[Rfam]
RNA sequence: UGUAAAGGAAACCACCUAAAAACGCCACGUUCUGUGGCAACGGCGGCAUUAGUACGUCCUGUACG
Dot-bracket structure: ...........((.((.......(((((.....)))))...)).)).....((((.....)))).
RNA: Bacillaceae-1 RNA